[Rfam]
RNA sequence: CCGGCAGGCUAUCUUAUCGCUCCUGUUUAUUUCGGGGGAGGAAAGUCCGGACACCAAAGAGCAGUAUAGCGGGUAACGCCCGUCCGUUGAAAGACGAGGACAAGUGCAGCAGAAAGAAUGUACAGGUAAGGCUGUAGUGAAAUCAGGUAAACUCUAUACGGUGCAACGCCAUGUAUACCAGUGUUUGAGGGUUGCUCGCCCGAUGCUGGAGGGUAGGCGGUUAGAAUUGUCGGGUAACCGGCAAUCCAGAUAAAUGAUAAGACCAGACAGAAUCCGGCUUAUCGGCCUGCUUUUUUU
Numbered sequence: 001c002c003g004g005c006a007g008g009c010u011a012u013c014u015u016a017u018c019g020c021u022c023c024u025g026u027u028u029a030u031u032u033c034g035g036g037g038g039a040g041g042a043a044a045g046u047c048c049g050g051a052c053a054c055c056a057a058a059g060a061g062c063a064g065u066a067u068a069g070c071g072g073g074u075a076a077c078g079c080c081c082g083u084c085c086g087u088u089g090a091a092a093g094a095c096g097a098g099g100a101c102a103a104g105u106g107c108a109g110c111a112g113a114a115a116g117a118a119u120g121u122a123c124a125g126g127u128a129a130g131g132c133u134g135u136a137g138u139g140a141a142a143u144c145a146g147g148u149a150a151a152c153u154c155u156a157u158a159c160g161g162u163g164c165a166a167c168g169c170c171a172u173g174u175a176u177a178c179c180a181g182u183g184u185u186u187g188a189g190g191g192u193u194g195c196u197c198g199c200c201c202g203a204u205g206c207u208g209g210a211g212g213g214u215a216g217g218c219g220g221u222u223a224g225a226a227u228u229g230u231c232g233g234g235u236a237a238c239c240g241g242c243a244a245u246c247c248a249g250a251u252a253a254a255u256g257a258u259a260a261g262a263c264c265a266g267a268c269a270g271a272a273u274c275c276g277g278c279u280u281a282u283c284g285g286c287c288u289g290c291u292u293u294u295u296u297u
Stems, first nucleotide, its partner, number of pairs: 003291008011282001012262007020038006043280003047277005052163004059197004064159005069083005084098001085096004099154002104152002106148002167219004178209005189201004226245008